[Rfam]
RNA sequence: UUAAUAAUAGUCGAAGGGAUGAUGGGUGGACGAUGAUUAACUAAUCUUAUUUUUAAAAUUUGAAAUCAUAUAUUUCAAAUCAUAACAAAUAGGAUUAGUCUGCCCAUUUUCUAUAAAUUGUAGAGCUAUUAAUGAAAUAGCUUAUUUGAUUAUGCAGAGGUACGGCUAAUCCUUCCAAAUGAAUGGGGAGGAUUUUUUA
Number, nucleotide and partner (000 for none) at each position: 001u000002u000003a000004a000005u000006a000007a000008u000009a000010g000011u000012c000013g000014a000015a000016g112017g111018g110019a109020u000021g000022a000023u106024g105025g104026g103027u000028g000029g100030a099031c098032g000033a000034u000035g000036a000037u000038u000039a000040a000041c000042u097043a096044a095045u094046c093047u092048u091049a090050u089051u088052u087053u000054u085055a000056a000057a000058a080059u079060u078061u077062g076063a075064a074065a073066u072067c000068a000069u000070a000071u000072a066073u065074u064075u063076c062077a061078a060079a059080u058081c000082a000083u000084a000085a054086c000087a052088a051089a050090u049091a048092g047093g046094a045095u044096u043097a042098g031099u030100c029101u000102g000103c026104c025105c024106a023107u000108u000109u019110u018111c017112u016113a000114u000115a000116a000117a000118u148119u000120g146121u000122a000123g000124a000125g141126c140127u139128a138129u137130u136131a000132a000133u000134g000135a000136a130137a129138u128139a127140g126141c125142u000143u000144a000145u000146u120147u000148g118149a000150u000151u000152a000153u000154g000155c000156a000157g000158a000159g000160g000161u000162a000163c000164g000165g000166c000167u000168a194169a193170u192171c191172c190173u189174u188175c187176c186177a000178a184179a000180u000181g000182a000183a000184u178185g000186g176187g175188g174189a173190g172191g171192a170193u169194u168195u000196u000197u000198u000199a000
A member of the RNA family "Bacillus sRNA ncr1575" from Peribacillus asahii, 199 nucleotides long. It is annotated as a small RNA. The family's consensus secondary structure is taken from published work. On this family, see Irnov et al., Nucleic Acids Res 2010: "Identification of regulatory RNAs in Bacillus subtilis". The source organism's lineage runs through Bacteria, Bacillati, Bacillota, Bacilli and Peribacillus. The match comes from Rfam's covariance-model search (163 bits).